[Rfam]
Nucleotides: 078
Base pairs, nucleotide, nucleotide: 012037013036017032018031019030020029021028022027040072041071042070043069047068048067049064050063051062
Number, partner (000 for none) and nucleotide at each position: 001000a002000a003000u004000a005000u006000g007000u008000c009000c010000u011000g012037g013036c014000a015000a016000a017032c018031c019030c020029a021028u022027c023000g024000a025000a026000a027022g028021g029020u030019g031018g032017g033000g034000a035000c036013g037012c038000a039000a040072a041071g042070c043069u044000a045000u046000a047068g048067g049064g050063c051062c052000u053000u054000g055000u056000g057000c058000g059000c060000a061000u062051g063050g064049c065000a066000g067048c068047c069043a070042g071041c072040u073000g074000c075000g076000g077000u078000u